[Rfam]
RNA sequence: CCGUCCCGCCCCGUGGGACGGCCACGCCCUCUUCGGUCGGCACGGCUAGGCUGGCUCCGUGCGCCUUCCUCCGGAGGACGCAAAGCCGACAGCCGUCGCAUCCCAGGGAGCACAUCCAUG
Numbered sequence: 001c002c003g004u005c006c007c008g009c010c011c012c013g014u015g016g017g018a019c020g021g022c023c024a025c026g027c028c029c030u031c032u033u034c035g036g037u038c039g040g041c042a043c044g045g046c047u048a049g050g051c052u053g054g055c056u057c058c059g060u061g062c063g064c065c066u067u068c069c070u071c072c073g074g075a076g077g078a079c080g081c082a083a084a085g086c087c088g089a090c091a092g093c094c095g096u097c098g099c100a101u102c103c104c105a106g107g108g109a110g111c112a113c114a115u116c117c118a119u120g
Base pairs, nucleotide, nucleotide: 060082061081062080063079065077066076067075068074085099086098088097089096090095

Notes:
Rfam assigns this 120-nucleotide RNA sequence from Streptomyces sp. SLBN-118 to the family "Streptomyces-metH RNA". It scores 102 bits against the family's covariance model. The organism belongs to Streptomyces, within Bacteria. The base pairs follow the family's consensus structure, which is taken from published work.